[Rfam]
RNA: Actinobacteria sRNA Ms_IGR-5
RNA sequence: ACACAAGAAGGGAGGUGGUUCGGCAGAUGAUUUCGCACCGGACAUGUGAGGUGGCUGCGGGCUGACGGCCCGUCGCUUCACGUAGUGCAGUGCCGGACCGGCGCACCACGCAGGUGCGCAGCCGGCCAAUCCCAAGCAGUCACCCGACCCGCGGGCUGCCGGUUCGUCCGACCGGCCCUUCGCGCCACCGAGCGCGGGGGAGGCAGCCCGCGGGUCGUCUGCG
Numbered sequence: 001a002c003a004c005a006a007g008a009a010g011g012g013a014g015g016u017g018g019u020u021c022g023g024c025a026g027a028u029g030a031u032u033u034c035g036c037a038c039c040g041g042a043c044a045u046g047u048g049a050g051g052u053g054g055c056u057g058c059g060g061g062c063u064g065a066c067g068g069c070c071c072g073u074c075g076c077u078u079c080a081c082g083u084a085g086u087g088c089a090g091u092g093c094c095g096g097a098c099c100g101g102c103g104c105a106c107c108a109c110g111c112a113g114g115u116g117c118g119c120a121g122c123c124g125g126c127c128a129a130u131c132c133c134a135a136g137c138a139g140u141c142a143c144c145c146g147a148c149c150c151g152c153g154g155g156c157u158g159c160c161g162g163u164u165c166g167u168c169c170g171a172c173c174g175g176c177c178c179u180u181c182g183c184g185c186c187a188c189c190g191a192g193c194g195c196g197g198g199g200g201a202g203g204c205a206g207c208c209c210g211c212g213g214g215u216c217g218u219c220u221g222c223g
Stems, first nucleotide, its partner, number of pairs: 015058005060127005066121001068119002071116001073114002145217013158176006